Shown here is a 144-nucleotide sequence from Gossypium armourianum, a member of the family "MIR7502 microRNA precursor family".

[Rfam]
RNA sequence: AGUUAAAAAUUUGAUCUAUUUUUACUGUUAAAAAUUGGUCCCUAUACAUUAACAUAAUGUACAUGUAAUGCACCACAUGUCACUGUCUGAUUAUUUCGUCAAACAUACCAAUCUUUAAAAGUAAAAAUAGAUGAAUUUUUAAUA
Numbered sequence: 001a002g003u004u005a006a007a008a009a010u011u012u013g014a015u016c017u018a019u020u021u022u023u024a025c026u027g028u029u030a031a032a033a034a035u036u037g038g039u040c041c042c043u044a045u046a047c048a049u050u051a052a053c054a055u056a057a058u059g060u061a062c063a064u065g066u067a068a069u070g071c072a073c074c075a076c077a078u079g080u081c082a083c084u085g086u087c088u089g090a091u092u093a094u095u096u097c098g099u100c101a102a103a104c105a106u107a108c109c110a111a112u113c114u115u116u117a118a119a120a121g122u123a124a125a126a127a128u129a130g131a132u133g134a135a136u137u138u139u140u141a142a143u144a
Stems, first nucleotide, its partner, number of pairs: 002143011014132003018128009028118005
A search with the family's covariance model found it, with a score of 78 bits.